[Rfam]
RNA sequence: GGAAGAGAAAUACCCCCGGUGGGGUGCCCGGACUUCAAACCCGGAGGGAGGCGCCAGGCGUCUCCGGCAGGUUCGACUCCUGCCUCUUCC
Numbered sequence: 001g002g003a004a005g006a007g008a009a010a011u012a013c014c015c016c017c018g019g020u021g022g023g024g025u026g027c028c029c030g031g032a033c034u035u036c037a038a039a040c041c042c043g044g045a046g047g048g049a050g051g052c053g054c055c056a057g058g059c060g061u062c063u064c065c066g067g068c069a070g071g072u073u074c075g076a077c078u079c080c081u082g083c084c085u086c087u088u089c090c
Base pairs, nucleotide, nucleotide: 001090002089003088004087005086006085007084011026012025013024014023015022016021028044029043030042031041047065048064049063050062051061068082069081070080071079

Notes:
The family of this 90-nucleotide RNA from Novosphingobium flavum is "Selenocysteine transfer RNA". On this family, see Lowe and Eddy, Nucleic Acids Res 1997: "tRNAscan-SE: a program for improved detection of transfer RNA genes in genomic sequence". Gene Ontology term of the family: triplet codon-amino acid adaptor activity. The source organism's lineage runs through Bacteria, Pseudomonadati, Sphingomonadales, Sphingomonadaceae and Novosphingobium. Pairs were carried over by alignment from the consensus structure, which is taken from published work.